Annotation
Rfam assigns this 248-nucleotide RNA from Sphaerisporangium melleum to the family "Actinobacteria sRNA Ms_IGR-5". The pairing is the family consensus, mapped onto this sequence. By type it is a small RNA.
RNA sequence: ACGCAGAAGGGAGGUGGUCCAAACAAUGGUUGAUCAUUAUUGGGCUAGCGAGGUGGCUGUCCGCUAGGACAUCGCCCAUCGGGACCUUCGUCCAGAUGUCGUGUCCCCUUUCCGGGGAUCGGUGACGUCCGGCGAAUCCAAGCAGACACCGGAACCCCGGGCGGCCGGCGGGGGGAGUUCUCACUCCUUCCAUGGUCCAGCCGGCCCGUCUCCCGCGAGGAGGCGGAGCCCGCCCGGGGUUCUUCUGC
Numbered sequence: 001a002c003g004c005a006g007a008a009g010g011g012a013g014g015u016g017g018u019c020c021a022a023a024c025a026a027u028g029g030u031u032g033a034u035c036a037u038u039a040u041u042g043g044g045c046u047a048g049c050g051a052g053g054u055g056g057c058u059g060u061c062c063g064c065u066a067g068g069a070c071a072u073c074g075c076c077c078a079u080c081g082g083g084a085c086c087u088u089c090g091u092c093c094a095g096a097u098g099u100c101g102u103g104u105c106c107c108c109u110u111u112c113c114g115g116g117g118a119u120c121g122g123u124g125a126c127g128u129c130c131g132g133c134g135a136a137u138c139c140a141a142g143c144a145g146a147c148a149c150c151g152g153a154a155c156c157c158c159g160g161g162c163g164g165c166c167g168g169c170g171g172g173g174g175g176a177g178u179u180c181u182c183a184c185u186c187c188u189u190c191c192a193u194g195g196u197c198c199a200g201c202c203g204g205c206c207c208g209u210c211u212c213c214c215g216c217g218a219g220g221a222g223g224c225g226g227a228g229c230c231c232g233c234c235c236g237g238g239g240u241u242c243u244u245c246u247g248c
Stems, first nucleotide, its partner, number of pairs: 013061006062134004067129002070127001072125001074123003151243013166223001